[Rfam]
RNA sequence: ACACAAGGAAGGAGGUGAUCCCAAGAAUGGAAAUUCUCAGGACGCGUGAGGUGGCUACCAGCUGACGCUGUAGCCGGCUGUCCCCUGGAUUCCGAUCGCUUCAGCGCUCAGCGAAUCCACGGUAGCCACCGGGCCCCCGAGCCCCCGAUCUGUCCGAUCGGGAUCGGCCGCGAGACCACCGGUUUUCACACCGGAACUCGCGCCGAUACGGCUCGGGGGUCGUUCUCU
Numbered sequence: 001a002c003a004c005a006a007g008g009a010a011g012g013a014g015g016u017g018a019u020c021c022c023a024a025g026a027a028u029g030g031a032a033a034u035u036c037u038c039a040g041g042a043c044g045c046g047u048g049a050g051g052u053g054g055c056u057a058c059c060a061g062c063u064g065a066c067g068c069u070g071u072a073g074c075c076g077g078c079u080g081u082c083c084c085c086u087g088g089a090u091u092c093c094g095a096u097c098g099c100u101u102c103a104g105c106g107c108u109c110a111g112c113g114a115a116u117c118c119a120c121g122g123u124a125g126c127c128a129c130c131g132g133g134c135c136c137c138c139g140a141g142c143c144c145c146c147g148a149u150c151u152g153u154c155c156g157a158u159c160g161g162g163a164u165c166g167g168c169c170g171c172g173a174g175a176c177c178a179c180c181g182g183u184u185u186u187c188a189c190a191c192c193g194g195a196a197c198u199c200g201c202g203c204c205g206a207u208a209c210g211g212c213u214c215g216g217g218g219g220u221c222g223u224u225c226u227c228u
Stems, first nucleotide, its partner, number of pairs: 014059004019054001061112005067105004072100003132221012144162006
Description: Actinobacteria sRNA Ms_IGR-5: a 228-nucleotide RNA from Nocardia jinanensis. The family's RNA type in Rfam is small RNA. The base pairs follow the family's consensus structure. Taxonomically the source falls in Nocardia (Bacteria, Bacillati, Actinomycetota, Nocardiaceae).